[Rfam]
RNA sequence: GCUCAACACUAAGUACUAGUGCCGCAGGAGUAAAUGCGAGGCCUCCUGUUGUUCUGGUACUUACUAUAGGGC
Number, nucleotide and partner (000 for none) at each position: 001g072002c071003u070004c069005a000006a067007c000008a000009c000010u063011a062012a061013g060014u059015a058016c057017u056018a055019g054020u000021g000022c000023c000024g049025c048026a047027g046028g045029a044030g043031u000032a000033a000034a000035u000036g000037c000038g000039a000040g000041g000042c000043c030044u029045c028046c027047u026048g025049u024050u000051g000052u000053u000054c019055u018056g017057g016058u015059a014060c013061u012062u011063a010064c000065u000066a000067u006068a000069g004070g003071g002072c001

A member of the RNA family "mir-252 microRNA precursor family" from Lingula anatina, 72 nucleotides long.
Gene Ontology terms of the family: RISC complex and miRNA-mediated post-transcriptional gene silencing.
The family's consensus secondary structure was predicted with RNAalifold.
A search with the family's covariance model found it, with a score of 58 bits.
The family is grouped with related families in Rfam's "mir-252 microRNA precursor family".
On this family, see Ruby et al., Cell 2006: "Large-scale sequencing reveals 21U-RNAs and additional microRNAs and endogenous siRNAs in C. elegans".